[Rfam]
RNA sequence: GCCGCGGGACGACCCGGGGCGUGUCGAAUCAUGCGGGGACGGCCCUG
Numbered sequence: 001g002c003c004g005c006g007g008g009a010c011g012a013c014c015c016g017g018g019g020c021g022u023g024u025c026g027a028a029u030c031a032u033g034c035g036g037g038g039a040c041g042g043c044c045c046u047g
Stems, first nucleotide, its partner, number of pairs: 001020003005016004034047005

The record is a 47-nucleotide sequence from Stutzerimonas stutzeri, which matches "Guanidine-II riboswitch aptamer (mini-ykkC)" in Rfam. The literature on the family includes a 2017 paper in Biochemistry by Sherlock et al., "Biochemical Validation of a Second Guanidine Riboswitch Class in Bacteria". A search with the family's covariance model found it, with a score of 38 bits.